[Rfam]
RNA: U11 spliceosomal RNA
RNA sequence: AAAAAGGGCUUCUGUUUUAAGUGGCACAUAUGGGGCAACUCAACUUCUCUUAGUGCAGAAUCGACAUCAAGAAAUUUUGGAAGCAUAAUUUUUUUGGUACCUGGAUAGCUGGUGUUCAUUGGUCCCAGCAUCCAC
Numbered sequence: 001a002a003a004a005a006g007g008g009c010u011u012c013u014g015u016u017u018u019a020a021g022u023g024g025c026a027c028a029u030a031u032g033g034g035g036c037a038a039c040u041c042a043a044c045u046u047c048u049c050u051u052a053g054u055g056c057a058g059a060a061u062c063g064a065c066a067u068c069a070a071g072a073a074a075u076u077u078u079g080g081a082a083g084c085a086u087a088a089u090u091u092u093u094u095u096g097g098u099a100c101c102u103g104g105a106u107a108g109c110u111g112g113u114g115u116u117c118a119u120u121g122g123u124c125c126c127a128g129c130a131u132c133c134a135c
Base pairs, nucleotide, nucleotide: 008084009083010082011081012080013026014025015024016023027055028054029053032050033049034048035047037045056079057078058077059076060075061074103133104132105131106130108129109128110127111126112125114124116122117121